Rfam assigns this 358-nucleotide part of an RNA from Halocatena salina to the family "Archaeal large subunit ribosomal RNA". It scores 2827 bits against the family's covariance model. A reference for the family is Yusupov et al. (2001), "Crystal structure of the ribosome at 5.5 A resolution", Science. Lineage of the source: Archaea > Methanobacteriota > Halobacteria > Halobacteriales > Halocatena.
RNA sequence: CAUAGUAGCAGCGAUAGUCGGGUGACAAUCCCGACGGCCGAACGGACAAGGGUUCCUCAGCAAUGAUCGUCAACUGAGGGUUAGCCGGUCCUAAGUCUCGUCGUAAUUCGAGCGAGACAAAUGGGAAACUGGUUAAUAUUCCAGUGCCGUUGUGCAAUGAACGUCGACGCUUUAGGGUCGUCCGAGCCGGGCCAUCGCCCGGUCGAACCGUCAAAGUUCGUGGAAGCCGUAAUGGCACGAAGCGAACGAACGGCGGGAUAGGGAAACUCGGAUCAACCUAGAGCCCGUGAAAAGACAAGCACAACGUCCGUACCGAGAUCCGACACAGGUGUCCGUGGCUGAAAACGCCAAGGCCUGU
Number, nucleotide and partner (000 for none) at each position: 001c000002a000003u000004a000005g000006u000007a000008g000009c000010a000011g000012c000013g000014a000015u000016a000017g035018u034019c033020g032021g031022g030023u000024g000025a000026c000027a000028a000029u000030c022031c021032c020033g019034a018035c017036g355037g354038c353039c352040g000041a000042a000043c000044g334045g333046a332047c331048a000049a000050g314051g313052g000053u000054u000055c079056c078057u077058c076059a075060g074061c000062a000063a000064u072065g071066a000067u000068c000069g000070u000071c065072a064073a000074c060075u059076g058077a057078g056079g055080g000081u000082u000083a000084g000085c000086c310087g309088g308089u000090c124091c123092u000093a000094a000095g118096u117097c116098u115099c114100g113101u111102c110103g109104u000105a000106a000107u000108u000109c103110g102111a101112g000113c100114g099115a098116g097117a096118c095119a000120a000121a000122u000123g091124g090125g000126a000127a000128a145129c144130u143131g142132g141133u000134u000135a000136a000137u000138a000139u000140u000141c132142c131143a130144g129145u128146g000147c000148c306149g305150u304151u303152g302153u301154g300155c299156a000157a000158u000159g000160a000161a000162c000163g296164u295165c294166g000167a000168c000169g284170c283171u282172u281173u280174a279175g278176g277177g000178u000179c000180g273181u272182c271183c270184g269185a000186g203187c202188c201189g200190g199191g000192c000193c000194a000195u000196c000197g000198c000199c190200c189201g188202g187203u186204c000205g000206a000207a000208c256209c255210g254211u253212c000213a000214a000215a000216g000217u246218u245219c244220g243221u242222g000223g000224a000225a000226g236227c235228c234229g000230u000231a000232a000233u000234g228235g227236c226237a000238c000239g000240a000241a000242g221243c220244g219245a218246a217247c000248g000249a000250a000251c000252g000253g211254c210255g209256g208257g000258a000259u000260a000261g000262g267263g000264a000265a000266a000267c262268u000269c184270g183271g182272a181273u180274c000275a000276a000277c176278c175279u174280a173281g172282a171283g170284c169285c000286c000287g000288u000289g000290a000291a000292a000293a000294g165295a164296c163297a000298a000299g155300c154301a153302c152303a151304a150305c149306g148307u000308c088309c087310g086311u000312a000313c051314c050315g000316a000317g000318a000319u000320c329321c328322g000323a000324c000325a000326c000327a000328g321329g320330u000331g047332u046333c045334c044335g000336u350337g349338g348339c347340u000341g000342a000343a000344a000345a000346c000347g339348c338349c337350a336351a000352g039353g038354c037355c036356u000357g000358u000